Rfam assigns this 127-nucleotide sequence from Copranaerobaculum intestinale to the family "Ribosomal protein L10 leader".
Rfam's curators write: This family is a putative r-protein leader autoregulatory structure found in B. subtilis and other low-GC Gram-positive bacteria. It is located in the 5' untranslated regions of mRNAs encoding ribosomal proteins L10 and L12 (rplJ-rplL). A Rho-independent transcription terminator structure that is probably involved in regulation is included at the 3' end.
It is annotated as a cis-regulatory leader.
The match comes from Rfam's covariance-model search (68 bits).
RNA sequence: AUCGUUGUUAUCAAUAUACCAUAGACAGUAACGGUGCAAUGCACUUAAUCAUGUUACCGAGGUGUAGAGCGAAACAUAAAUGUUCACUCACACUGUCUUGCGGUGUGAGUGUUUUAUAUUUUUCCCU
Numbered sequence: 001a002u003c004g005u006u007g008u009u010a011u012c013a014a015u016a017u018a019c020c021a022u023a024g025a026c027a028g029u030a031a032c033g034g035u036g037c038a039a040u041g042c043a044c045u046u047a048a049u050c051a052u053g054u055u056a057c058c059g060a061g062g063u064g065u066a067g068a069g070c071g072a073a074a075c076a077u078a079a080a081u082g083u084u085c086a087c088u089c090a091c092a093c094u095g096u097c098u099u100g101c102g103g104u105g106u107g108a109g110u111g112u113u114u115u116a117u118a119u120u121u122u123u124c125c126c127u
Stems, first nucleotide, its partner, number of pairs: 028057006034044003085111012